[Rfam]
RNA: Singlet oxygen resistance RNA X
Organism: Tritonibacter multivorans
RNA sequence: UGCAUUUUUGAAGACGGCAGCUAGCGCUGCUCUUCAUACCUCCCUGUUGGACUUCGGCCGAGCUUAGUGCUCGGCCUUUUUU
Numbered sequence: 001u002g003c004a005u006u007u008u009u010g011a012a013g014a015c016g017g018c019a020g021c022u023a024g025c026g027c028u029g030c031u032c033u034u035c036a037u038a039c040c041u042c043c044c045u046g047u048u049g050g051a052c053u054u055c056g057g058c059c060g061a062g063c064u065u066a067g068u069g070c071u072c073g074g075c076c077u078u079u080u081u082u
Stems, first nucleotide, its partner, number of pairs: 009036006056076008